[Rfam]
RNA sequence: UUGCAACCCAAUUAAUCUGCCUACCUGAAUGUGUUACCACAGAAAUUUAGAAACAGCUGGCAAUAGUGGUGUCAUUUUAUGAGCUUUAAAGACAACAAGUCAUUACAGUCUCUCAAAAUGGCUACAAUA
Numbered sequence: 001u002u003g004c005a006a007c008c009c010a011a012u013u014a015a016u017c018u019g020c021c022u023a024c025c026u027g028a029a030u031g032u033g034u035u036a037c038c039a040c041a042g043a044a045a046u047u048u049a050g051a052a053a054c055a056g057c058u059g060g061c062a063a064u065a066g067u068g069g070u071g072u073c074a075u076u077u078u079a080u081g082a083g084c085u086u087u088a089a090a091g092a093c094a095a096c097a098a099g100u101c102a103u104u105a106c107a108g109u110c111u112c113u114c115a116a117a118a119u120g121g122c123u124a125c126a127a128u129a
Stems, first nucleotide, its partner, number of pairs: 003061002006058001016043004071122004083109003087105003091101003
Background:
A member of the RNA family "Small nucleolar RNA SNORA33" from Jaculus jaculus, 129 nucleotides long. Gene Ontology terms of the family: nucleolus and RNA processing. The source organism's lineage runs through Eukaryota, Metazoa, Chordata, Dipnotetrapodomorpha and Jaculus. It is annotated as an H/ACA-box small nucleolar RNA. Rfam describes the family as follows. ACA33 is a member of the H/ACA class of snoRNA that guide the sites of modification of uridines to pseudouridines.